[Rfam]
RNA sequence: UUGUGCUACAUAGAUUUGGGGUGACACCCAAGUCCUCACUGCUGAUGUGAGAAGAAUUUUUGAUCAGAUAAGGGUUGCCCCCAAGGCAACCCACCUACUUUGUGAGAUGCCUGGGUUCAGUGGUCUGACAU
Number, nucleotide and partner (000 for none) at each position: 001u000002u000003g000004u000005g000006c000007u000008a000009c000010a000011u000012a000013g034014a033015u032016u031017u030018g029019g028020g027021g000022u000023g000024a000025c000026a000027c020028c019029c018030a017031a016032g015033u014034c013035c051036u050037c049038a048039c047040u000041g000042c000043u000044g000045a000046u000047g039048u038049g037050a036051g035052a000053a000054g000055a000056a000057u000058u000059u000060u000061u000062g000063a000064u000065c000066a000067g129068a000069u127070a000071a000072g126073g125074g124075u123076u122077g121078c120079c000080c000081c115082c114083a000084a112085g111086g110087c109088a108089a000090c106091c000092c104093a103094c102095c000096u000097a000098c000099u000100u000101u000102g094103u093104g092105a000106g090107a000108u088109g087110c086111c085112u084113g000114g082115g081116u000117u000118c000119a000120g078121u077122g076123g075124u074125c073126u072127g069128a000129c067130a000131u000
U12 minor spliceosomal RNA: a 131-nucleotide RNA sequence from Microtus ochrogaster. NCBI's taxonomy places the organism under Eukaryota, Bilateria, Gnathostomata, Rodentia, Microtus. The literature on the family includes a 1997 paper in Trends Biochem Sci by Tarn and Steitz, "Pre-mRNA splicing: the discovery of a new spliceosome doubles the challenge". By type it is a spliceosomal small nuclear RNA. The match comes from Rfam's covariance-model search (65 bits).